Background:
Shown here is a 160-nucleotide RNA sequence from Ruminococcus sp. AF31-8BH, a member of the family "Clostridiales-1 RNA". The source organism's lineage runs through Bacteria, Bacillati, Eubacteriales, Oscillospiraceae and Ruminococcus. Rfam classes the family as a small RNA.

RNA sequence: UGAAAGUCCUGUCCAGCAGCUGCGAAUGAGCCAUGCUUGCAUGGACGAAUUCGCAGAUAUUGGACGGGCUAGACCGUAUGAGUAAGUAGGGCGAUAGCCCGGAUUACGAAUACGGUCGGCAGUUACGGGAGCACCGUAGGUGCGGAGUAACUGACUUUCA
Numbered sequence: 001u002g003a004a005a006g007u008c009c010u011g012u013c014c015a016g017c018a019g020c021u022g023c024g025a026a027u028g029a030g031c032c033a034u035g036c037u038u039g040c041a042u043g044g045a046c047g048a049a050u051u052c053g054c055a056g057a058u059a060u061u062g063g064a065c066g067g068g069c070u071a072g073a074c075c076g077u078a079u080g081a082g083u084a085a086g087u088a089g090g091g092c093g094a095u096a097g098c099c100c101g102g103a104u105u106a107c108g109a110a111u112a113c114g115g116u117c118g119g120c121a122g123u124u125a126c127g128g129g130a131g132c133a134c135c136g137u138a139g140g141u142g143c144g145g146a147g148u149a150a151c152u153g154a155c156u157u158u159c160a
Stems, first nucleotide, its partner, number of pairs: 001160007008068004015061002018058001020056008030046001031044005072117008082107004089100004120153007131143004